The family of this 143-nucleotide RNA from Escherichia coli is "Short Intergenic Abundant RNA". Rfam links the family to the GO term mRNA binding. The base pairs follow the family's consensus structure, which was predicted with PFOLD. For this family Rfam cites "Identification of novel small RNAs using comparative genomics and microarrays" (Wassarman et al., Genes Dev, 2001). Rfam's curators put it in the seed alignment. This family contains multiple ncRNA from E. coli that were identified in a large scale screen of E. coli, were they were called candidates 43,55 and 61. These RNAs have also been identified by other groups and called QUAD RNAs.
RNA sequence: UUGACAACAAGGGUUGAGUGACAUAAUUUCAGGAGUGAGGGUAGAGCGGGGUUUUCCCCGCCCUGGUAGUCUUAGUAUGCUGGGUAGCUAAUGACUAAGAGCACCACGAUGAUGAGUAGCUUCAUCAUGACCCUUUCCUUAUU
Numbered sequence: 001u002u003g004a005c006a007a008c009a010a011g012g013g014u015u016g017a018g019u020g021a022c023a024u025a026a027u028u029u030c031a032g033g034a035g036u037g038a039g040g041g042u043a044g045a046g047c048g049g050g051g052u053u054u055u056c057c058c059c060g061c062c063c064u065g066g067u068a069g070u071c072u073u074a075g076u077a078u079g080c081u082g083g084g085u086a087g088c089u090a091a092u093g094a095c096u097a098a099g100a101g102c103a104c105c106a107c108g109a110u111g112a113u114g115a116g117u118a119g120c121u122u123c124a125u126c127a128u129g130a131c132c133c134u135u136u137c138c139u140u141a142u143u
Base pairs, nucleotide, nucleotide: 031139032138033137034136037135038134039133040132041131042130046061047060048059064106065105066104109128110127111126112125113124114123
Dot-bracket structure: ..............................((((..((((((...(((..........)))..(((.....................................)))..((((((........)))))).))))))))))....